[Rfam]
RNA sequence: GGCUCGGGCCGUGACUGGCGCUUGAGGUGGAUCACCACCGGGGAGCGGCCCGGCGGAGGCGUGCUCGACCGGCGCGACCGCACCGAUGCCGUGCGCCUGGGCGACCCCC
Number, nucleotide and partner (000 for none) at each position: 001g000002g000003c000004u053005c052006g051007g050008g049009c048010c047011g046012u045013g000014a000015c042016u041017g097018g096019c095020g094021c093022u000023u000024g000025a000026g000027g038028u037029g036030g035031a000032u000033c000034a000035c030036c029037a028038c027039c000040g000041g016042g015043g000044a000045g012046c011047g010048g009049c008050c007051c006052g005053g004054c000055g000056g000057a000058g000059g000060c000061g000062u000063g000064c000065u000066c000067g000068a000069c000070c000071g000072g000073c000074g000075c000076g000077a000078c000079c000080g000081c000082a000083c000084c000085g000086a000087u103088g102089c101090c100091g000092u000093g021094c020095g019096c018097c017098u000099g000100g090101g089102c088103g087104a000105c000106c000107c000108c000109c000
The family of this 109-nucleotide RNA sequence from Streptomyces sp. adm13(2018) is "ZMP/ZTP riboswitch aptamer (pfl RNA motif)". NCBI's taxonomy places the organism under Bacteria, Bacillati, Actinomycetes, Streptomycetaceae, Streptomyces.